[Rfam]
SmY spliceosomal RNA: an 80-nucleotide RNA sequence from Cylicocyclus nassatus. Rfam classes the family as a spliceosomal small nuclear RNA. A search with the family's covariance model found it, with a score of 41 bits. For this family Rfam cites "A novel family of C. elegans snRNPs contains proteins associated with trans-splicing" (MacMorris et al., RNA, 2007). Lineage of the source: Eukaryota > Metazoa > Ecdysozoa > Rhabditomorpha > Cylicocyclus.
RNA sequence: AGCCAUGUCUUAAUUGUUUCUGGGCCUUUGCUAAGACCCUGAGUACGAAUUUUUGGGGAACUUUGCGAAUGCAAAGGCCA
Numbered sequence: 001a002g003c004c005a006u007g008u009c010u011u012a013a014u015u016g017u018u019u020c021u022g023g024g025c026c027u028u029u030g031c032u033a034a035g036a037c038c039c040u041g042a043g044u045a046c047g048a049a050u051u052u053u054u055g056g057g058g059a060a061c062u063u064u065g066c067g068a069a070u071g072c073a074a075a076g077g078c079c080a
Stems, first nucleotide, its partner, number of pairs: 022039003026035003058079001061076006